RNA sequence: AACCUGUGAUGACAUGAUUCUGCCAAAUGAAUCUGCUGAUUAUAUCCUUAUACCGUUCCUUAUAUCUGAGGUU
Numbered sequence: 001a002a003c004c005u006g007u008g009a010u011g012a013c014a015u016g017a018u019u020c021u022g023c024c025a026a027a028u029g030a031a032u033c034u035g036c037u038g039a040u041u042a043u044a045u046c047c048u049u050a051u052a053c054c055g056u057u058c059c060u061u062a063u064a065u066c067u068g069a070g071g072u073u
Stems, first nucleotide, its partner, number of pairs: 001073004